[Rfam]
RNA sequence: GUUUCAUGAUGAUCCCCAUGCGUGUCAUAUGAUCCCACAAUCCCAUCCAGCUCCUGGCCGCCCACUGGCGUUCUGUCAGGGGGCGUCUCCAGGACUGGAGGAUUCUGGGGCUGUGAUCAUACCCUACAGACUCUGAAAAC
Numbered sequence: 001g002u003u004u005c006a007u008g009a010u011g012a013u014c015c016c017c018a019u020g021c022g023u024g025u026c027a028u029a030u031g032a033u034c035c036c037a038c039a040a041u042c043c044c045a046u047c048c049a050g051c052u053c054c055u056g057g058c059c060g061c062c063c064a065c066u067g068g069c070g071u072u073c074u075g076u077c078a079g080g081g082g083g084c085g086u087c088u089c090c091a092g093g094a095c096u097g098g099a100g101g102a103u104u105c106u107g108g109g110g111c112u113g114u115g116a117u118c119a120u121a122c123c124c125u126a127c128a129g130a131c132u133c134u135g136a137a138a139a140c
Base pairs, nucleotide, nucleotide: 001140002139003138004137046099047098048097049096050095051093052092
RNA: Small nucleolar RNA SNORD10
Organism: Acipenser ruthenus